Shown here is a 127-nucleotide RNA from Streptococcus himalayensis, a member of the family "PyrR binding site". A search with the family's covariance model found it, with a score of 60 bits. By type it is a cis-regulatory element. About the family: This family represents the PyrR binding site and terminator structure. This RNA structure is found upstream of a variety of genes involved in pyrimidine biosynthesis and transport. The alignment also includes a portion of the antiterminator structure.
RNA sequence: GAUUCCUUUAAUUCUGUCCAGAGAGGCAGGCAAGGAGAAACGGUCAUAGAAUGGGUGGAGUGUAACCUGCGGGUCUUGCUCUAGCCAUAUUUUCUGAAGUCUCCUUGCAUAAGGAGACUUUUUUAGU
Numbered sequence: 001g002a003u004u005c006c007u008u009u010a011a012u013u014c015u016g017u018c019c020a021g022a023g024a025g026g027c028a029g030g031c032a033a034g035g036a037g038a039a040a041c042g043g044u045c046a047u048a049g050a051a052u053g054g055g056u057g058g059a060g061u062g063u064a065a066c067c068u069g070c071g072g073g074u075c076u077u078g079c080u081c082u083a084g085c086c087a088u089a090u091u092u093u094c095u096g097a098a099g100u101c102u103c104c105u106u107g108c109a110u111a112a113g114g115a116g117a118c119u120u121u122u123u124u125a126g127u
Stems, first nucleotide, its partner, number of pairs: 003037006013030006050091004055086001058082001096121011